[Rfam]
RNA sequence: UGCGCAGCGCGUGCUUGAUGACCACGGUGGAGAAGGACAGGCCCUUCAGCCGCGCCGUUCGGAUAUAUUGCUGGGUCAUCACCUCGACCAUCGACGCGCGCGUCAUGCGCGCGAUGUAGCCGAUGCCGUAGAUGGCCAGCGUCAUCACCGGCAGGGUGAAAUUAUAGAAGGUGAUGCCCUGGCUGGCGGAUGC
Numbered sequence: 001u002g003c004g005c006a007g008c009g010c011g012u013g014c015u016u017g018a019u020g021a022c023c024a025c026g027g028u029g030g031a032g033a034a035g036g037a038c039a040g041g042c043c044c045u046u047c048a049g050c051c052g053c054g055c056c057g058u059u060c061g062g063a064u065a066u067a068u069u070g071c072u073g074g075g076u077c078a079u080c081a082c083c084u085c086g087a088c089c090a091u092c093g094a095c096g097c098g099c100g101c102g103u104c105a106u107g108c109g110c111g112c113g114a115u116g117u118a119g120c121c122g123a124u125g126c127c128g129u130a131g132a133u134g135g136c137c138a139g140c141g142u143c144a145u146c147a148c149c150g151g152c153a154g155g156g157u158g159a160a161a162u163u164a165u166a167g168a169a170g171g172u173g174a175u176g177c178c179c180u181g182g183c184u185g186g187c188g189g190a191u192g193c
Stems, first nucleotide, its partner, number of pairs: 003141003007137001009136002014131002016128002021124001028123001030121001038113001041110002046105001048103001051100004055075002060070003082096001084094003146192002148189003152185002154179004
A member of the RNA family "Ruegeria cis52 sRNA" from Mesorhizobium sp. 8, 193 nucleotides long. The family's consensus secondary structure was predicted with RNAfold. On this family, see Rivers et al., Front Microbiol 2016: "Experimental Identification of Small Non-Coding RNAs in the Model Marine Bacterium Ruegeria pomeroyi DSS-3". A search with the family's covariance model found it, with a score of 71 bits.